[Rfam]
RNA sequence: UCGGUCCCGGUUCACGCCGCACACUCCUUUCCGGUCCAUUCGGCCGGGGGGAGGGCGACCCGGGGCC
Number, nucleotide and partner (000 for none) at each position: 001u000002c000003g067004g066005u065006c000007c063008c062009g061010g060011u000012u000013c000014a000015c057016g056017c055018c054019g000020c000021a000022c053023a000024c000025u000026c000027c000028u000029u000030u000031c000032c000033g000034g000035u000036c000037c000038a000039u000040u000041c000042g000043g000044c000045c000046g000047g000048g000049g000050g000051g000052a000053g022054g018055g017056c016057g015058a000059c000060c010061c009062g008063g007064g000065g005066c004067c003
RNA: L31-Actinobacteria ribosomal protein leader